[Rfam]
Rfam assigns this 67-nucleotide RNA from Pongo pygmaeus to the family "mir-290 microRNA precursor family".
RNA sequence: GUGGGCCUCAAAUGUGGAGCACUAUUCUGAUGUCCAAGUGGAAAGUGCUGCGACAUUUGAGCGUCAC
Numbered sequence: 001g002u003g004g005g006c007c008u009c010a011a012a013u014g015u016g017g018a019g020c021a022c023u024a025u026u027c028u029g030a031u032g033u034c035c036a037a038g039u040g041g042a043a044a045g046u047g048c049u050g051c052g053a054c055a056u057u058u059g060a061g062c063g064u065c066a067c
Stems, first nucleotide, its partner, number of pairs: 004065003007061006014054002017051001018049006025043003
The organism belongs to Pongo, within Eukaryota.